[Rfam]
RNA sequence: UGAUGGAACUCUGGAAAGUCUUAAUUAAGCACCGAAGGAGAAAUACAUGGCUUCACGUGAGCAUGUAGAAACUCUCAGGUAACAAGGACAGAGGAUAAACU
Numbered sequence: 001u002g003a004u005g006g007a008a009c010u011c012u013g014g015a016a017a018g019u020c021u022u023a024a025u026u027a028a029g030c031a032c033c034g035a036a037g038g039a040g041a042a043a044u045a046c047a048u049g050g051c052u053u054c055a056c057g058u059g060a061g062c063a064u065g066u067a068g069a070a071a072c073u074c075u076c077a078g079g080u081a082a083c084a085a086g087g088a089c090a091g092a093g094g095a096u097a098a099a100c101u
Stems, first nucleotide, its partner, number of pairs: 006096001009093005020029003031080003034076002038074003044067006

The record is a 101-nucleotide RNA sequence from Clostridium cylindrosporum, which matches "Glycine riboswitch aptamer" in Rfam. Rfam's curators write: This family represents the bacterial glycine riboswitch. NCBI's taxonomy places the organism under Bacteria, Clostridia, Eubacteriales, Clostridium, Clostridium cylindrosporum.